[Rfam]
A member of the RNA family "Actinobacteria sRNA Ms_IGR-5" from Streptomyces colonosanans, 221 nucleotides long. The literature on the family includes a 2013 paper in RNA by Li et al., "Identification of small RNAs in Mycobacterium smegmatis using heterologous Hfq". Pairs were carried over by alignment from the consensus structure. The family's RNA type in Rfam is small RNA. NCBI's taxonomy places the organism under Bacteria, Actinomycetes, Kitasatosporales, Streptomycetaceae, Streptomyces.
RNA sequence: ACAGCGAAAGGAGGUGGUUCGGCGAAUGUAUGAAAACCGGACAGCUGAGGUGGCUGCGGGCUAGCGGCCCGUCGUCGUACUCGGUUCGGCGCCGGAUCAGCGCGUGCGAGCAACGCGCAGCCGGCCAAUCCCACGCAGUCACCCGACCCGCGAGCUCGCCGGUACGUCCGGCCGGCUUCUCCGCCGUCAGGCGGAGGACCUGGGCUCGCGGGUCGUCUGCG
Numbered sequence: 001a002c003a004g005c006g007a008a009a010g011g012a013g014g015u016g017g018u019u020c021g022g023c024g025a026a027u028g029u030a031u032g033a034a035a036a037c038c039g040g041a042c043a044g045c046u047g048a049g050g051u052g053g054c055u056g057c058g059g060g061c062u063a064g065c066g067g068c069c070c071g072u073c074g075u076c077g078u079a080c081u082c083g084g085u086u087c088g089g090c091g092c093c094g095g096a097u098c099a100g101c102g103c104g105u106g107c108g109a110g111c112a113a114c115g116c117g118c119a120g121c122c123g124g125c126c127a128a129u130c131c132c133a134c135g136c137a138g139u140c141a142c143c144c145g146a147c148c149c150g151c152g153a154g155c156u157c158g159c160c161g162g163u164a165c166g167u168c169c170g171g172c173c174g175g176c177u178u179c180u181c182c183g184c185c186g187u188c189a190g191g192c193g194g195a196g197g198a199c200c201u202g203g204g205c206u207c208g209c210g211g212g213u214c215g216u217c218u219g220c221g
Stems, first nucleotide, its partner, number of pairs: 014057005059126004064121002067118002070115001072113001074111001144215013158176006